[Rfam]
RNA sequence: GAGUUCAGUAGGCACGCGAGUCGUUGACGUUUUUCAUUGAACAGUCGAAGGCGAAAUGAAAGUGUUCAUGAAAAUGAACAGUACUUUUUUAUGGAGUGCUGUUCGCUUUCAACAUGAUCGUCCUUUUUUGUGCUUAAUUGUGCAAAAUUGAUGUAUGGGGACGCGCAGUGUGGUGCCGUUGAAUAGUCGCACUGUUCUUUCUUUCUCUUCGGGGUUGGAGGAACAAUUGUCGAUCAGUCGGUUUCGGAGCGUGCACACUGGUACCCGAAAGAUGGUGAACUAUGCUUGAGCAGAAUGAAGCCAGAGGAAACUCUGGUGGAAGUUCGUAGCGGUGUUGACGUGCAAAUCACUCGUCUGACUUGAGUGUAGGGGCGAAAGACUAAUCGAACCAUCUAGUUGCUGGUU
Numbered sequence: 001g002a003g004u005u006c007a008g009u010a011g012g013c014a015c016g017c018g019a020g021u022c023g024u025u026g027a028c029g030u031u032u033u034u035c036a037u038u039g040a041a042c043a044g045u046c047g048a049a050g051g052c053g054a055a056a057u058g059a060a061a062g063u064g065u066u067c068a069u070g071a072a073a074a075u076g077a078a079c080a081g082u083a084c085u086u087u088u089u090u091a092u093g094g095a096g097u098g099c100u101g102u103u104c105g106c107u108u109u110c111a112a113c114a115u116g117a118u119c120g121u122c123c124u125u126u127u128u129u130g131u132g133c134u135u136a137a138u139u140g141u142g143c144a145a146a147a148u149u150g151a152u153g154u155a156u157g158g159g160g161a162c163g164c165g166c167a168g169u170g171u172g173g174u175g176c177c178g179u180u181g182a183a184u185a186g187u188c189g190c191a192c193u194g195u196u197c198u199u200u201c202u203u204u205c206u207c208u209u210c211g212g213g214g215u216u217g218g219a220g221g222a223a224c225a226a227u228u229g230u231c232g233a234u235c236a237g238u239c240g241g242u243u244u245c246g247g248a249g250c251g252u253g254c255a256c257a258c259u260g261g262u263a264c265c266c267g268a269a270a271g272a273u274g275g276u277g278a279a280c281u282a283u284g285c286u287u288g289a290g291c292a293g294a295a296u297g298a299a300g301c302c303a304g305a306g307g308a309a310a311c312u313c314u315g316g317u318g319g320a321a322g323u324u325c326g327u328a329g330c331g332g333u334g335u336u337g338a339c340g341u342g343c344a345a346a347u348c349a350c351u352c353g354u355c356u357g358a359c360u361u362g363a364g365u366g367u368a369g370g371g372g373c374g375a376a377a378g379a380c381u382a383a384u385c386g387a388a389c390c391a392u393c394u395a396g397u398u399g400c401u402g403g404u405u
Base pairs, nucleotide, nucleotide: 005261006260007259008258009257012254013253014252015251016250017249020052021051022050025047026046027045028044056063057062112171113170114169115168119163120162121161122160123159124158125157175243176241177240178239179237180236181235186230264403265402267400271393272392273391274390275389276388280369281368282367283366284365285364286363287362288361289360290359291357293325294324295323296322300317301316302315303314304313305312306311329354330353331352332351334350335349337348338347371381372380

A member of the RNA family "Eukaryotic large subunit ribosomal RNA" from Trichinella sp. T8, 405 nucleotides of a longer RNA.